[Rfam]
RNA sequence: GCUCCCCUGGUGGCGGGGUCAAGUCACCAUCCUCCCUGUUGGACUUGCCCCCGCGGACUUUUGCGGGGGCUUUUUU
Dot-bracket structure: .......(((((((........))))))).................((((((((........))))))))......
RNA: Singlet oxygen resistance RNA X
Organism: Marivivens niveibacter